A member of the RNA family "7SK RNA" from Notiomystis cincta, 314 nucleotides long. By type it is a non-coding RNA gene. The source organism's lineage runs through Eukaryota, Opisthokonta, Coelurosauria, Neoaves and Notiomystis. 7SK was discovered as an abundant small nuclear RNA in the mid-70s but a possible function has only recently been suggested. Two independent studies have found that 7SK RNA binds the CDK9/cyclin T complex (known as elongation factor P-TEFb). P-TEFb activates transcription by phosphorylating the C-terminal domain of RNA polymerase II. This process is negatively regulated by the 7SK RNP. The secondary structure of 7SK RNA shown here was proposed by Wasserman and Steitz on the basis of chemical modification and enzymatic cleavage experiments. This family contains a number of annotated pseudogenes and 7SK derived repeats. The threshold is artificially high to minimise the pseudogene count. For this family Rfam cites "Transcription: surprising role for an elusive small nuclear RNA" (Blencowe, Curr Biol, 2002).

[Rfam]
RNA sequence: GGAUGUGAGGGAAACCUGUCUCUGAGAUCUGAUAUGCCAUCGAUUGCAUGGGUUGAUUUGACUGACCUGGCUGUCUUGGGCAGGUGUUCCCUUUCUUCCUCAACAUUCCAUGUGUGUUCCUCCUGAUGCUGUCUGCUUGGUUAAUGAGGACAGCCUCCCCAGCAGACAUGGCAUUGUUCAUUAAGGGUGUGUGGUAGCUGUGCUCCUCUGCUGGAAGCUCAAGGUACAUUUGUAGGUGAAUGUAGGGUGAUCAAACAUCCAAUACUGAAGACACAACCAAAUGAGAAGCUGCAUGCAGCAGUCUGCUAGUGUCU
Numbered sequence: 001g002g003a004u005g006u007g008a009g010g011g012a013a014a015c016c017u018g019u020c021u022c023u024g025a026g027a028u029c030u031g032a033u034a035u036g037c038c039a040u041c042g043a044u045u046g047c048a049u050g051g052g053u054u055g056a057u058u059u060g061a062c063u064g065a066c067c068u069g070g071c072u073g074u075c076u077u078g079g080g081c082a083g084g085u086g087u088u089c090c091c092u093u094u095c096u097u098c099c100u101c102a103a104c105a106u107u108c109c110a111u112g113u114g115u116g117u118u119c120c121u122c123c124u125g126a127u128g129c130u131g132u133c134u135g136c137u138u139g140g141u142u143a144a145u146g147a148g149g150a151c152a153g154c155c156u157c158c159c160c161a162g163c164a165g166a167c168a169u170g171g172c173a174u175u176g177u178u179c180a181u182u183a184a185g186g187g188u189g190u191g192u193g194g195u196a197g198c199u200g201u202g203c204u205c206c207u208c209u210g211c212u213g214g215a216a217g218c219u220c221a222a223g224g225u226a227c228a229u230u231u232g233u234a235g236g237u238g239a240a241u242g243u244a245g246g247g248u249g250a251u252c253a254a255a256c257a258u259c260c261a262a263u264a265c266u267g268a269a270g271a272c273a274c275a276a277c278c279a280a281a282u283g284a285g286a287a288g289c290u291g292c293a294u295g296c297a298g299c300a301g302u303c304u305g306c307u308a309g310u311g312u313c314u
Stems, first nucleotide, its partner, number of pairs: 001109003006102006013094002018091001024088002027085005033079001037070003042067001044065002046062001117171002121166002123140004128136002141162002148158003197256001199254001204249001206247006218238001220236001224233003279314001281312001285307001288302005
Dot-bracket structure: (((..((((((.((...(.....((.(((((.(...(((..(.(((...............).)).))))........).))))).))..).))..))))))....))).......((..((((((.((.....))))))((.....(((.....)))..))..))...)).........................(.(....(.((((((......(.(...(((....)))..).)...)))))).)....).)......................(.(...(..(((((.....)))))....)....).)